[Rfam]
RNA sequence: UGAGUAAGUCAGACAGUCGCAUAUUUAAUAUAUGAGGAAAGUCCGAGCUUCGCAGAGCACGGUGCCGGAUAACGUCCGGUGGAGGCGACUCCAAGGCUAGUGCAACAGAAAUAAACCGCCCGACAUCGGGUAAGGAUGGAAAGGUAAGGUAAGAGCUUACCAAAAUGCAGGCGACUGCAUUGUUAUGUAAACCCCACCGGAAGCAAGACCAAGAAGGAUGUAAAAACUAAAGUUGCUCGCUUUAAUCCAAAAGGUAGGUCGCUUGAGGUCAUUGGCAACAGUGACAGUAGAUAGAUGACUGUUUAAUACUGAACUCGGCUUAUAGACUUGCUCAUUUU
Dot-bracket structure: ((((((((((((((((((.(((((.....)))))....[[[.[[[[[((((...[[[[.((((((((((.....)))))(((((....)))).)((...(((((...........(((((((....)))))..)).......((((((.......))))))((.((((((....))))))).)..)))..)))))))))))))...((((......(...........(((((.]]]])))))....)........)))).......(((((((....)))))))...........)))))))..........]]]]]]]].).))))))))))....
A member of the RNA family "Bacterial RNase P class A" from Peptostreptococcaceae bacterium AS15, 338 nucleotides long.
NCBI's taxonomy places the organism under Bacteria, Bacillati, Clostridia, Peptostreptococcales, Peptostreptococcaceae.
The family is grouped with related families in Rfam's "RNaseP clan".
The match comes from Rfam's covariance-model search (284 bits).
Ribonuclease P (RNase P) is a ubiquitous endoribonuclease, found in archaea, bacteria and eukarya as well as chloroplasts and mitochondria. Its best characterised activity is the generation of mature 5'-ends of tRNAs by cleaving the 5'-leader elements of precursor-tRNAs. Cellular RNase Ps are ribonucleoproteins. RNA from bacterial RNase Ps retains its catalytic activity in the absence of the protein subunit, i.e. it is a ribozyme.